[Rfam]
RNA sequence: AGACUAAUAUUUAUACUCAGCAGCUCAUUCCUGCUGGGUGUUCAAAGGAUAGUGCAAUAGAAACUCAGUAUCUGGCAUCGUUGGUUUUCUUGGCUUCGUGCAUGUUAAACCUGGUAUUUUUAUUGAAACAGUA
Numbered sequence: 001a002g003a004c005u006a007a008u009a010u011u012u013a014u015a016c017u018c019a020g021c022a023g024c025u026c027a028u029u030c031c032u033g034c035u036g037g038g039u040g041u042u043c044a045a046a047g048g049a050u051a052g053u054g055c056a057a058u059a060g061a062a063a064c065u066c067a068g069u070a071u072c073u074g075g076c077a078u079c080g081u082u083g084g085u086u087u088u089c090u091u092g093g094c095u096u097c098g099u100g101c102a103u104g105u106u107a108a109a110c111c112u113g114g115u116a117u118u119u120u121u122a123u124u125g126a127a128a129c130a131g132u133a
Base pairs, nucleotide, nucleotide: 001050010048011047012046013041014040015039016038017037018036019035020034021033022032023031058122059121060120061119062118063117065114066113067112068111075101076100077099078098
RNA: Small nucleolar RNA SNORA8
Organism: Mustela putorius